The family of this 195-nucleotide RNA from Symbiobacterium thermophilum is "6S / SsrS RNA". The family's consensus secondary structure is taken from published work. Rfam classes the family as a non-coding RNA gene. A search with the family's covariance model found it, with a score of 79 bits. On this family, see Wassarman and Storz, Cell 2000: "6S RNA regulates E. coli RNA polymerase activity".
RNA sequence: CGCUCCCGACCAUGUGCGUGAUCACCGGUAAGAAAUGACCUAACACAUUCAAGAAAGGGAGCCUUUAUUCCGAUGUGGCCUGAACGCCCCCCCGGCACGGCCGUGGUCAGGGGACUCAGAAAGCAGCGGAGCGGGCACCCACCUGUGGAGAGCAGGUUCAUUGUUCUACCGGGCACACGGCAUGGUGGGGUAUGC
Numbered sequence: 001c002g003c004u005c006c007c008g009a010c011c012a013u014g015u016g017c018g019u020g021a022u023c024a025c026c027g028g029u030a031a032g033a034a035a036u037g038a039c040c041u042a043a044c045a046c047a048u049u050c051a052a053g054a055a056a057g058g059g060a061g062c063c064u065u066u067a068u069u070c071c072g073a074u075g076u077g078g079c080c081u082g083a084a085c086g087c088c089c090c091c092c093c094g095g096c097a098c099g100g101c102c103g104u105g106g107u108c109a110g111g112g113g114a115c116u117c118a119g120a121a122a123g124c125a126g127c128g129g130a131g132c133g134g135g136c137a138c139c140c141a142c143c144u145g146u147g148g149a150g151a152g153c154a155g156g157u158u159c160a161u162u163g164u165u166c167u168a169c170c171g172g173g174c175a176c177a178c179g180g181c182a183u184g185g186u187g188g189g190g191u192a193u194g195c
Base pairs, nucleotide, nucleotide: 002193005190006189007188009186010185011184012183013182014181015180017179018178019177032166033165034164035162036160037159038158039156040155057140058139059138061136062135063134064133066131068130070129071128072127074125075124076123082117083116087113088112089111090110